The record is a 181-nucleotide RNA from Parambassis ranga, which matches "Small nucleolar RNA SNORA23" in Rfam.
Rfam classes the family as an H/ACA-box small nucleolar RNA.
Its family is annotated with nucleolus and RNA processing in the Gene Ontology.
The members of this family belong to the H/ACA class of snoRNAs which are thought to guide the sites of modification of uridines to pseudouridines.
The base pairs follow the family's consensus structure, which was predicted with RNAalifold.
The source organism's lineage runs through Eukaryota, Eumetazoa, Vertebrata, Neopterygii and Parambassis.
A search with the family's covariance model found it, with a score of 93 bits.
A reference for the family is Huttenhofer et al. (2001), "RNomics: an experimental approach that identifies 201 candidates for novel, small, non-messenger RNAs in mouse", EMBO J.
[Rfam]
RNA sequence: GGUGAAUGGUGUGCACAGUGUCAGUCUGUGUUAUGCUUUGUUGUUGGACUGUGUUUUGCAGCCUUAGCAGCAGGGCUCACUCCAAACCUGCAGCCAUAGAACAACUGGAGAUCAUAGUACUGGUCCUUGACGUCGAUACUGACAACCCACCAUUGGCCAGCCUCCAAACUCUCCAACACAC
Numbered sequence: 001g002g003u004g005a006a007u008g009g010u011g012u013g014c015a016c017a018g019u020g021u022c023a024g025u026c027u028g029u030g031u032u033a034u035g036c037u038u039u040g041u042u043g044u045u046g047g048a049c050u051g052u053g054u055u056u057u058g059c060a061g062c063c064u065u066a067g068c069a070g071c072a073g074g075g076c077u078c079a080c081u082c083c084a085a086a087c088c089u090g091c092a093g094c095c096a097u098a099g100a101a102c103a104a105c106u107g108g109a110g111a112u113c114a115u116a117g118u119a120c121u122g123g124u125c126c127u128u129g130a131c132g133u134c135g136a137u138a139c140u141g142a143c144a145a146c147c148c149a150c151c152a153u154u155g156g157c158c159a160g161c162c163u164c165c166a167a168a169c170u171c172u173c174c175a176a177c178a179c180a181c
Base pairs, nucleotide, nucleotide: 013091014090015089030080031079035077036075037074038073039072040071041070043068044067046064047063050060051059052058107174108173109172110171111170120160121159122158123157124156125155128152129151132143133142134141135140